[Rfam]
RNA sequence: UGGAAGAAUCCGUUAAGCUCAGGAGGGAUAGCGCCAUCGAUCUCGACACCAUCGUCUCCCCGAUGAUCAUCUGCCUCGACGCAUUCUUUGUUUAUCCCGGCGCUAUCCAUCCUGAGUUUCCCGGCUUCUUCUU
Numbered sequence: 001u002g003g004a005a006g007a008a009u010c011c012g013u014u015a016a017g018c019u020c021a022g023g024a025g026g027g028a029u030a031g032c033g034c035c036a037u038c039g040a041u042c043u044c045g046a047c048a049c050c051a052u053c054g055u056c057u058c059c060c061c062g063a064u065g066a067u068c069a070u071c072u073g074c075c076u077c078g079a080c081g082c083a084u085u086c087u088u089u090g091u092u093u094a095u096c097c098c099g100g101c102g103c104u105a106u107c108c109a110u111c112c113u114g115a116g117u118u119u120c121c122c123g124g125c126u127u128c129u130u131c132u133u
Stems, first nucleotide, its partner, number of pairs: 010124001016118009026108010
RNA: MIR390 microRNA precursor family